Annotation
Rfam assigns this 127-nucleotide RNA from Rhipicephalus microplus to the family "U5 spliceosomal RNA". Rfam classes the family as a spliceosomal small nuclear RNA. The family's consensus secondary structure is taken from published work. Rfam 15.1 lists 28,527 matches to the family in 2,489 species. A search with the family's covariance model found it, with a score of 88 bits. Its family is annotated with spliceosomal tri-snRNP complex assembly and U5 snRNP in the Gene Ontology.

Nucleotides: 127
Base pairs, nucleotide, nucleotide: 003084004083005082006081009072010071011070012069013068014067015066016065017064018063019062032058033057034056035055036054037053038052039051103127107126108125109124110123111122112121
Number, partner (000 for none) and nucleotide at each position: 001000u002000u003084g004083c005082u006081c007000a008000g009072g010071c011070c012069u013068c014067a015066c016065c017064u018063c019062a020000g021000g022000u023000u024000u025000u026000a027000c028000g029000a030000a031000u032058u033057a034056a035055u036054c037053u038052u039051u040000c041000g042000c043000c044000u045000u046000u047000u048000a049000c050000u051039a052038a053037a054036g055035a056034u057033u058032a059000c060000c061000g062019u063018g064017g065016g066015g067014u068013g069012g070011g071010g072009c073000a074000c075000u076000c077000c078000a079000a080000u081006g082005a083004g084003c085000c086000u087000a088000u089000a090000g091000g092000c093000c094000a095000a096000u097000u098000u099000u100000u101000g102000g103127g104000a105000g106000g107126c108125c109124u110123u111122g112121c113000c114000c115000g116000u117000u118000u119000g120000g121112g122111c123110a124109g125108g126107g127103c